This 80-nucleotide RNA sequence from Dickeya dadantii belongs to the Rfam family "MicA sRNA". Gene Ontology term of the family: mRNA binding. On this family, see Udekwu et al., Genes Dev 2005: "Hfq-dependent regulation of OmpA synthesis is mediated by an antisense RNA". It is one of the family's seed sequences.

RNA sequence: GAAAGACGCGCAUUUAUUAUCAUCAUCCCUAUUAUCAGAGAUGUUUCUUUGGCCACCCGAUGACAAUCGAGUGGCCUUUU
Numbered sequence: 001g002a003a004a005g006a007c008g009c010g011c012a013u014u015u016a017u018u019a020u021c022a023u024c025a026u027c028c029c030u031a032u033u034a035u036c037a038g039a040g041a042u043g044u045u046u047c048u049u050u051g052g053c054c055a056c057c058c059g060a061u062g063a064c065a066a067u068c069g070a071g072u073g074g075c076c077u078u079u080u
Base pairs, nucleotide, nucleotide: 024043025042026041027040029038030037051076052075053074054073055072056071